A member of the RNA family "FMN riboswitch aptamer (RFN element)" from Ruminiclostridium cellulolyticum, 129 nucleotides long.
Rfam links the family to the GO term FMN binding.

RNA sequence: UAAUAUCUUCAGGGCAGGGUGCGAUUCCCUACCGGCGGUAAUGUACUAUUUAGUAUUAGCCCGCGAGCGUUUUGCAGACAUGGUGUGAUUCCAUGGCCGACAGUACAGUCUGGAUGAAAGAAGAAACAG
Numbered sequence: 001u002a003a004u005a006u007c008u009u010c011a012g013g014g015c016a017g018g019g020u021g022c023g024a025u026u027c028c029c030u031a032c033c034g035g036c037g038g039u040a041a042u043g044u045a046c047u048a049u050u051u052a053g054u055a056u057u058a059g060c061c062c063g064c065g066a067g068c069g070u071u072u073u074g075c076a077g078a079c080a081u082g083g084u085g086u087g088a089u090u091c092c093a094u095g096g097c098c099g100a101c102a103g104u105a106c107a108g109u110c111u112g113g114a115u116g117a118a119a120g121a122a123g124a125a126a127c128a129g
Stems, first nucleotide, its partner, number of pairs: 004126001006124005017029003031109002033099002035064004059097002067075003079095005101112003

It is one of the family's seed sequences. Rfam describes the family as follows. The RFN element is a highly conserved domain that is found frequently in the 5'-untranslated regions of prokaryotic mRNAs that encode for flavin mononucleotide (FMN) biosynthesis and transport proteins. Lineage of the source: Bacteria > Clostridia > Eubacteriales > Oscillospiraceae > Ruminiclostridium cellulolyticum.